[Rfam]
RNA: mir-7398 microRNA precursor family
RNA sequence: UGUGUAGAGGGGUGAGGGUACCGUGCAUUACCGGGUAACCCUCCCUUCUUUCACAGU
Numbered sequence: 001u002g003u004g005u006a007g008a009g010g011g012g013u014g015a016g017g018g019u020a021c022c023g024u025g026c027a028u029u030a031c032c033g034g035g036u037a038a039c040c041c042u043c044c045c046u047u048c049u050u051u052c053a054c055a056g057u
Stems, first nucleotide, its partner, number of pairs: 001053002004051001006049004011045002014042001016040001020036003